A member of the RNA family "RNase MRP" from Vitis vinifera, 224 nucleotides long. Gene Ontology terms of the family: rRNA processing, ribonuclease MRP activity and ribonuclease MRP complex. Rfam describes the family as follows. RNase MRP is an enzymatically active ribonucleoprotein with two distinct roles in eukaryotes.
RNA sequence: CAAGCGCGAGAGCGGAGUGAGCGGGCCGCCAACACAUGGCCCAGGAAAGUCCCCGGGCUAGCAGCCGCAGAGAUGCGGGCUUGGAAACGAGUUGUCUUCGACGGAAGCCCAUUCGGCUGAGACAUGUGUGGAGCUUCGGGCUUUCGCCGAAGCGUAGUGGCCGAUAUUACAGUUAUUCACUUGGUCCAUCGGAUCAACUGAACGGGGCUUACGCUCUCGCGCGU
Numbered sequence: 001c002a003a004g005c006g007c008g009a010g011a012g013c014g015g016a017g018u019g020a021g022c023g024g025g026c027c028g029c030c031a032a033c034a035c036a037u038g039g040c041c042c043a044g045g046a047a048a049g050u051c052c053c054c055g056g057g058c059u060a061g062c063a064g065c066c067g068c069a070g071a072g073a074u075g076c077g078g079g080c081u082u083g084g085a086a087a088c089g090a091g092u093u094g095u096c097u098u099c100g101a102c103g104g105a106a107g108c109c110c111a112u113u114c115g116g117c118u119g120a121g122a123c124a125u126g127u128g129u130g131g132a133g134c135u136u137c138g139g140g141c142u143u144u145c146g147c148c149g150a151a152g153c154g155u156a157g158u159g160g161c162c163g164a165u166a167u168u169a170c171a172g173u174u175a176u177u178c179a180c181u182u183g184g185u186c187c188a189u190c191g192g193a194u195c196a197a198c199u200g201a202a203c204g205g206g207g208c209u210u211a212c213g214c215u216c217u218c219g220c221g222c223g224u
Base pairs, nucleotide, nucleotide: 002224004222005221006220007219008218009217010216011215015182016181017180018179019178020177023042024041025040026039027038028037047210048209049208051207052206053205054204066077067076068075069074078093079092080091081090082089083088095151097149102146103145104144105143106142107141108140109139110138115135116134117133124129184194185193186192187191